Rfam assigns this 81-nucleotide RNA from Vigna angularis to the family "Small nucleolar RNA Z102/R77". It scores 75 bits against the family's covariance model. Gene Ontology terms of the family: nucleolus and RNA processing. By type it is a C/D-box small nucleolar RNA. Taxonomically the source falls in Vigna angularis (Eukaryota, Euphyllophyta, Gunneridae, Pentapetalae).
RNA sequence: GAAUGGAAUGAUGAUUAUGAAUUCCCUAUUGGUUUGAUUGCCUCAAUGAUGGCGUUUUGUAUUAGCUCUAUCUGACCAUUC
Numbered sequence: 001g002a003a004u005g006g007a008a009u010g011a012u013g014a015u016u017a018u019g020a021a022u023u024c025c026c027u028a029u030u031g032g033u034u035u036g037a038u039u040g041c042c043u044c045a046a047u048g049a050u051g052g053c054g055u056u057u058u059g060u061a062u063u064a065g066c067u068c069u070a071u072c073u074g075a076c077c078a079u080u081c
Stems, first nucleotide, its partner, number of pairs: 002080004036056001039054004